[Rfam]
RNA: T-box leader
RNA sequence: CGAAAAUCGUUGAAGGGAAAUAGUACAUAUGUCUUCUUGCGAAAGAGAGUGGAAUUCACCGGCUGAAAGAUUCCUCGUAUAGAAUAUAUCGAACCUAUCCCUGAGUCUUAAAUGAAAGUUUAGGCGUUCGCCUGCGUUAUAGGCACCAAGUGGAUAUCUAUGUAUAUCAAUUAAGGUGGUACCGCGGAACAAUGACCGUUUCGUCCUUUUU
Numbered sequence: 001c002g003a004a005a006a007u008c009g010u011u012g013a014a015g016g017g018a019a020a021u022a023g024u025a026c027a028u029a030u031g032u033c034u035u036c037u038u039g040c041g042a043a044a045g046a047g048a049g050u051g052g053a054a055u056u057c058a059c060c061g062g063c064u065g066a067a068a069g070a071u072u073c074c075u076c077g078u079a080u081a082g083a084a085u086a087u088a089u090c091g092a093a094c095c096u097a098u099c100c101c102u103g104a105g106u107c108u109u110a111a112a113u114g115a116a117a118g119u120u121u122a123g124g125c126g127u128u129c130g131c132c133u134g135c136g137u138u139a140u141a142g143g144c145a146c147c148a149a150g151u152g153g154a155u156a157u158c159u160a161u162g163u164a165u166a167u168c169a170a171u172u173a174a175g176g177u178g179g180u181a182c183c184g185c186g187g188a189a190c191a192a193u194g195a196c197c198g199u200u201u202c203g204u205c206c207u208u209u210u211u
Base pairs, nucleotide, nucleotide: 008105015101016100017099018098027089028088029087030086031085040077041076042075051074052073053072054071055070056069107124108123109122110121111120112119113118125136126135127134153168154167155166156165157164173208174207175206176205184204185203186202187201188200189199190198